[Rfam]
RNA sequence: CGGGAUGUAGCUCAGCCAGGUUAGAGUACACGUCUGGGGGGCGUGGGGUCGCUAGUUCGAAUCUAGUCAUCCCGA
Number, nucleotide and partner (000 for none) at each position: 001c074002g073003g072004g071005a070006u069007g068008u000009a000010g027011c026012u025013c024014a000015g000016c000017c000018a000019g000020g000021u000022u000023a000024g013025a012026g011027u010028a000029c045030a044031c043032g042033u041034c000035u000036g000037g000038g000039g000040g000041g033042c032043g031044u030045g029046g000047g000048g000049u000050c000051g067052c066053u065054a064055g063056u000057u000058c000059g000060a000061a000062u000063c055064u054065a053066g052067u051068c007069a006070u005071c004072c003073c002074g001075a000
Notes: tRNA: a 75-nucleotide RNA sequence from Sunxiuqinia elliptica. It scores 57 bits against the family's covariance model. Lineage of the source: Bacteria > Bacteroidia > Marinilabiliales > Prolixibacteraceae > Sunxiuqinia.